[Rfam]
RNA sequence: CAACAACCGAAAGGAGGUGAUCCAGUGUCUCAUUGUUCUCAGGCUAUCGCCGCGGCCGCGGCCUGGAUCAUCGUUCCCGCCACUGCGGGGAUGGCUUCCUGAGCCAGGCGGGGCGGCAACGCCUCUGACCAAUGGAAGGGCCUCGGUGGGCAACCACCGGGGCCC
Numbered sequence: 001c002a003a004c005a006a007c008c009g010a011a012a013g014g015a016g017g018u019g020a021u022c023c024a025g026u027g028u029c030u031c032a033u034u035g036u037u038c039u040c041a042g043g044c045u046a047u048c049g050c051c052g053c054g055g056c057c058g059c060g061g062c063c064u065g066g067a068u069c070a071u072c073g074u075u076c077c078c079g080c081c082a083c084u085g086c087g088g089g090g091a092u093g094g095c096u097u098c099c100u101g102a103g104c105c106a107g108g109c110g111g112g113g114c115g116g117c118a119a120c121g122c123c124u125c126u127g128a129c130c131a132a133u134g135g136a137a138g139g140g141c142c143u144c145g146g147u148g149g150g151c152a153a154c155c156a157c158c159g160g161g162g163c164c165c
Base pairs, nucleotide, nucleotide: 016023017022031134032133033132034131035130036128037127049062050061051060052059065077066076067075078110079109080108083103087099088098089097090096115123116122117121138165139164140163141162142161143160144159145158146157147156148155149154
The family of this 165-nucleotide RNA from Roseicella aerolata is "caulobacter sRNA CC2171". Taxonomically the source falls in Roseicella (Bacteria, Pseudomonadati, Pseudomonadota, Roseomonadaceae). The family's consensus secondary structure was predicted with RNAalifold. A reference for the family is Landt et al. (2008), "Small non-coding RNAs in Caulobacter crescentus", Mol Microbiol.